[Rfam]
Nucleotides: 119
Stems, first nucleotide, its partner, number of pairs: 004116007017029003031099002033089002035048004043087002052064002069085005091102003
Number, partner (000 for none) and nucleotide at each position: 001000a002000a003000g004116a005115u006114u007113c008112u009111u010110c011000g012000g013000g014000g015000c016000g017029a018028g019027g020000u021000g022000u023000g024000a025000u026000u027019c028018c029017u030000c031099a032098c033089c034088g035048g036047c037046g038045g039000u040000a041000a042000a043087g044086u045038c046037c047036g048035c049000g050000a051000c052064c053063c054000g055000c056000g057000a058000u059000u060000a061000g062000c063053g064052g065000u066000u067000g068000a069085u070084u071083u072082g073081g074000u075000g076000c077000a078000a079000u080000u081073c082072c083071a084070a085069a086044a087043c088034c089033g090000a091102c092101a093100g094000u095000a096000u097000a098032g099031u100093c101092u102091g103000g104000a105000u106000g107000a108000g109000a110010g111009a112008a113007g114006a115005a116004u117000g118000c119000u